tRNA: a 73-nucleotide sequence from Babesia sp. Xinjiang. It is annotated as a transfer RNA. The match comes from Rfam's covariance-model search (68 bits). Rfam describes the family as follows. Transfer RNA (tRNA) molecules are approximately 80 nucleotides in length. Their secondary structure includes four short double-helical elements and three loops (D, anti-codon, and T loops). Further hydrogen bonds mediate the characteristic L-shaped molecular structure. tRNAs have two regions of fundamental functional importance: the anti-codon, which is responsible for specific mRNA codon recognition, and the 3' end, to which the tRNAs corresponding amino acid is attached (by aminoacyl-tRNA synthetases). tRNAs cope with the degeneracy of the genetic code in two manners: having more than one tRNA (with a specific anti-codon) for a particular amino acid; and 'wobble' base-pairing, i.e. permitting non-standard base-pairing at the 3rd anti-codon position.
RNA sequence: GACGGUGUGGCCUAAUGGAUAAGGCGUCGGUCUUCGGAACCGAAGAUUGCGGGUUCGAGUCCCGUCGCCGUUA
Numbered sequence: 001g002a003c004g005g006u007g008u009g010g011c012c013u014a015a016u017g018g019a020u021a022a023g024g025c026g027u028c029g030g031u032c033u034u035c036g037g038a039a040c041c042g043a044a045g046a047u048u049g050c051g052g053g054u055u056c057g058a059g060u061c062c063c064g065u066c067g068c069c070g071u072u073a
Stems, first nucleotide, its partner, number of pairs: 001072007010025004027043005049065005